[Rfam]
RNA sequence: CACCCAUCCAGAGCGACCGAGAGACCUGGCUCACCGACGUCGCAGCAACCCCCCGGUCACCGGGUGCGGGUGCUUCCGCCGGGACCGAUGGAGG
Numbered sequence: 001c002a003c004c005c006a007u008c009c010a011g012a013g014c015g016a017c018c019g020a021g022a023g024a025c026c027u028g029g030c031u032c033a034c035c036g037a038c039g040u041c042g043c044a045g046c047a048a049c050c051c052c053c054c055g056g057u058c059a060c061c062g063g064g065u066g067c068g069g070g071u072g073c074u075u076c077c078g079c080c081g082g083g084a085c086c087g088a089u090g091g092a093g094g
Stems, first nucleotide, its partner, number of pairs: 001094001004091005013043005021032003026082004044074004049070002051066001053064002078086001
The family of this 94-nucleotide sequence from Nocardia puris is "SAM riboswitch aptamer (S box leader)". The organism belongs to Nocardia, within Bacteria. The base pairs follow the family's consensus structure, which is taken from published work.